[Rfam]
RNA sequence: UUGACCUUUAAAAGACAGUCCCGUGAGGCUGAAAAGGAAACGGUAAAUACGAAGCAGUAUACGUAUGUCUUAAAUCCUUUUCUUCUUUACGGAGAAAAGGAUUUUUUUG
Numbered sequence: 001u002u003g004a005c006c007u008u009u010a011a012a013a014g015a016c017a018g019u020c021c022c023g024u025g026a027g028g029c030u031g032a033a034a035a036g037g038a039a040a041c042g043g044u045a046a047a048u049a050c051g052a053a054g055c056a057g058u059a060u061a062c063g064u065a066u067g068u069c070u071u072a073a074a075u076c077c078u079u080u081u082c083u084u085c086u087u088u089a090c091g092g093a094g095a096a097a098a099g100g101a102u103u104u105u106u107u108u109g
Base pairs, nucleotide, nucleotide: 005037006036007035008034009033016031017030018029019028020027045068047066048065049064050063051062053060072104073103074102075101076100077099078098079097080096081095082094083093084092085091
RNA: PyrR binding site
Organism: Paraliobacillus ryukyuensis